[Rfam]
RNA sequence: UCGUGCUAAGCGGGGAGCUAGCGGUGCCCUGUACCCGCAAUCCGCUAUAGCGGGGCUGAAUUCCGAACAGAGGCGCUUUGUUGGUGGGGCCUGGGCCGGAGUAAGAAGCGAUGAUGGUCAGGUCCCAUGCGGCGAGAGCUCGUAAACCCCGUCAGAUCCGGAAGGAAGCAGCGGUAAGCGAAUCCUCUUGGGUGUCAUGGGAGAGCCUGGCCGGAGCUUACUGCUCUUGGUGACGCUCAUUGGCAGACGUCGACGGGAGGUGCACGA
Numbered sequence: 001u002c003g004u005g006c007u008a009a010g011c012g013g014g015g016a017g018c019u020a021g022c023g024g025u026g027c028c029c030u031g032u033a034c035c036c037g038c039a040a041u042c043c044g045c046u047a048u049a050g051c052g053g054g055g056c057u058g059a060a061u062u063c064c065g066a067a068c069a070g071a072g073g074c075g076c077u078u079u080g081u082u083g084g085u086g087g088g089g090c091c092u093g094g095g096c097c098g099g100a101g102u103a104a105g106a107a108g109c110g111a112u113g114a115u116g117g118u119c120a121g122g123u124c125c126c127a128u129g130c131g132g133c134g135a136g137a138g139c140u141c142g143u144a145a146a147c148c149c150c151g152u153c154a155g156a157u158c159c160g161g162a163a164g165g166a167a168g169c170a171g172c173g174g175u176a177a178g179c180g181a182a183u184c185c186u187c188u189u190g191g192g193u194g195u196c197a198u199g200g201g202a203g204a205g206c207c208u209g210g211c212c213g214g215a216g217c218u219u220a221c222u223g224c225u226c227u228u229g230g231u232g233a234c235g236c237u238c239a240u241u242g243g244c245a246g247a248c249g250u251c252g253a254c255g256g257g258a259g260g261u262g263c264a265c266g267a
Base pairs, nucleotide, nucleotide: 001267002266003265004264005263006262009057010056011055012030013029014028015027017025018024019023034054035053036052037051038050063260064259068255072251073250074249075248079245080244081243082242083241084240085239086238087237088236092232093231096229098227099226100225101224104222105221107218108217109216115213116212117211118210119209120208121207122206123205124201125200126199127198128197129196130192133190134189135188136187137186138183140181141180142179143178149174150173151172152171157166158165159164
Bacterial large signal recognition particle RNA: a 267-nucleotide sequence from Candidatus Hakubella thermalkaliphila.
Rfam links the family to the GO terms signal recognition particle, plasma membrane targeting and SRP-dependent cotranslational protein targeting to membrane, signal sequence recognition.
By type it is a non-coding RNA gene.